[Rfam]
RNA sequence: GCUGAGCACCAGCCACGGCAGAAGCGGGGGACCCAGGUGAACCGCCGACCGGUCGACGACCGGGACGGCUUGGGGUGAAGCCGCGCCACUGCGCCUCGUACGAAACGCACGAGGACGCGGAGGGUGCGGCCGGGCAUCUCCGGCCCGAAUCCGACAGCUCACCUCGCAGGCGUGGGAGAGGAACC
Numbered sequence: 001g002c003u004g005a006g007c008a009c010c011a012g013c014c015a016c017g018g019c020a021g022a023a024g025c026g027g028g029g030g031a032c033c034c035a036g037g038u039g040a041a042c043c044g045c046c047g048a049c050c051g052g053u054c055g056a057c058g059a060c061c062g063g064g065a066c067g068g069c070u071u072g073g074g075g076u077g078a079a080g081c082c083g084c085g086c087c088a089c090u091g092c093g094c095c096u097c098g099u100a101c102g103a104a105a106c107g108c109a110c111g112a113g114g115a116c117g118c119g120g121a122g123g124g125u126g127c128g129g130c131c132g133g134g135c136a137u138c139u140c141c142g143g144c145c146c147g148a149a150u151c152c153g154a155c156a157g158c159u160c161a162c163c164u165c166g167c168a169g170g171c172g173u174g175g176g177a178g179a180g181g182a183a184c185c
Stems, first nucleotide, its partner, number of pairs: 001171003009021001024167006034072005073152003081129007132146004